[Rfam]
Nucleotides: 056
Stems, first nucleotide, its partner, number of pairs: 006024006012017001031051006
Number, partner (000 for none) and nucleotide at each position: 001000c002000a003000g004000g005000a006024g007023c008022c009021c010020g011019g012017u013000g014000a015000a016000a017012a018000u019011c020010c021009g022008g023007g024006u025000g026000g027000c028000u029000c030000u031051u032050c033049c034048g035047g036046c037000c038000g039000c040000c041000g042000a043000c044000c045000c046036g047035c048034c049033g050032g051031a052000c053000a054000a055000c056000g
Background
The record is a 56-nucleotide RNA from Azorhizobium oxalatiphilum, which matches "sul1 RNA" in Rfam. Lineage of the source: Bacteria > Pseudomonadati > Alphaproteobacteria > Hyphomicrobiales > Azorhizobium.